[Rfam]
RNA sequence: GAGUUUUGAGGUGAGAACGGCCUCCUCACACGCCUGUCGAUCGAACGUUCAACAGGCAAAGUAGCUGGGAAACCAGCGAAGAGAUCUGGGUGUGGGCACCCCAGCAAAUCUA
Numbered sequence: 001g002a003g004u005u006u007u008g009a010g011g012u013g014a015g016a017a018c019g020g021c022c023u024c025c026u027c028a029c030a031c032g033c034c035u036g037u038c039g040a041u042c043g044a045a046c047g048u049u050c051a052a053c054a055g056g057c058a059a060a061g062u063a064g065c066u067g068g069g070a071a072a073c074c075a076g077c078g079a080a081g082a083g084a085u086c087u088g089g090g091u092g093u094g095g096g097c098a099c100c101c102c103a104g105c106a107a108a109u110c111u112a
Base pairs, nucleotide, nucleotide: 002111003110005108006107007106008105011029012028013027014026015025020097021096022095023094031081032057033056034055035054036053037052086104087103088102089101090100
RNA: skipping-rope RNA
Organism: Bradyrhizobium oligotrophicum